[Rfam]
RNA sequence: GUCUGUUGCGAUGAGGAUAAUAAGCUCCCUCUUCUGAAGACAUUGAGGACACUCGCUGGCAGAAUCGAACCAAUAAACUUAGCCACCACUGAGUAA
Numbered sequence: 001g002u003c004u005g006u007u008g009c010g011a012u013g014a015g016g017a018u019a020a021u022a023a024g025c026u027c028c029c030u031c032u033u034c035u036g037a038a039g040a041c042a043u044u045g046a047g048g049a050c051a052c053u054c055g056c057u058g059g060c061a062g063a064a065u066c067g068a069a070c071c072a073a074u075a076a077a078c079u080u081a082g083c084c085a086c087c088a089c090u091g092a093g094u095a096a
Base pairs, nucleotide, nucleotide: 006096007095008094009093
Background
Small nucleolar RNA R30/Z108: a 96-nucleotide sequence from Oryza brachyantha. snoR30 is a C/D box small nucleolar RNA which acts as a methylation guide for 18S ribosomal RNA in plants. On this family, see Marker et al., Curr Biol 2002: "Experimental RNomics. Identification of 140 Candidates for Small Non-Messenger RNAs in the Plant Arabidopsis thaliana". The family has 6 seed sequences and 626 matches in Rfam 15.1. The family is grouped with related families in Rfam's "SNORD100 clan". Gene Ontology terms of the family: RNA processing and nucleolus. NCBI's taxonomy places the organism under Eukaryota, Streptophyta, Magnoliopsida, Oryzinae, Oryza.